Shown here is a 78-nucleotide RNA from Microctonus hyperodae, a member of the family "mir-980 microRNA precursor family". The family has 8 seed sequences and 121 matches in Rfam 15.1. Pairs were carried over by alignment from the consensus structure, which was predicted with RNAalifold. Rfam links the family to the GO terms miRNA-mediated post-transcriptional gene silencing and RISC complex. It scores 58 bits against the family's covariance model.

RNA sequence: ACUACGUUGCCGCUCAUCAUCGGGCAUCUUGCGUUAAUUGAAUAUUGCUAGCUGCCUUAUGAAGGGCAACGUCGUGGU
Numbered sequence: 001a002c003u004a005c006g007u008u009g010c011c012g013c014u015c016a017u018c019a020u021c022g023g024g025c026a027u028c029u030u031g032c033g034u035u036a037a038u039u040g041a042a043u044a045u046u047g048c049u050a051g052c053u054g055c056c057u058u059a060u061g062a063a064g065g066g067c068a069a070c071g072u073c074g075u076g077g078u
Stems, first nucleotide, its partner, number of pairs: 004075003008071002012067004017062004023056002028051002031048002